[Rfam]
RNA: Small nucleolar RNA R38
RNA sequence: UAGUGGGGAUGAUGAGAAAUUUUUUGAAUACAGUUAUCCCUGUCUGAUAAAUAGGAUGUUGAUACAUUUUAAUUUGACACGCUU
Numbered sequence: 001u002a003g004u005g006g007g008g009a010u011g012a013u014g015a016g017a018a019a020u021u022u023u024u025u026g027a028a029u030a031c032a033g034u035u036a037u038c039c040c041u042g043u044c045u046g047a048u049a050a051a052u053a054g055g056a057u058g059u060u061g062a063u064a065c066a067u068u069u070u071a072a073u074u075u076g077a078c079a080c081g082c083u084u
Base pairs, nucleotide, nucleotide: 002083003082004081005080007078